[Rfam]
RNA sequence: CAAGCCGCUGCAGGAGAGACUGUCAUUCGCUGACAGCGCCGAAGGGGAAUCGCCCCGGAAACUCUCAGGCAAAAGAACUGCAGCGACGUC
Numbered sequence: 001c002a003a004g005c006c007g008c009u010g011c012a013g014g015a016g017a018g019a020c021u022g023u024c025a026u027u028c029g030c031u032g033a034c035a036g037c038g039c040c041g042a043a044g045g046g047g048a049a050u051c052g053c054c055c056c057g058g059a060a061a062c063u064c065u066c067a068g069g070c071a072a073a074a075g076a077a078c079u080g081c082a083g084c085g086a087c088g089u090c
Stems, first nucleotide, its partner, number of pairs: 006085008020036004038070003041066002045064003051057002
This 90-nucleotide RNA sequence from Vogesella sp. EB belongs to the Rfam family "Glycine riboswitch aptamer". Lineage of the source: Bacteria > Pseudomonadati > Betaproteobacteria > Chromobacteriaceae > Vogesella. It scores 68 bits against the family's covariance model. Its family is annotated with glycine biosynthetic process in the Gene Ontology.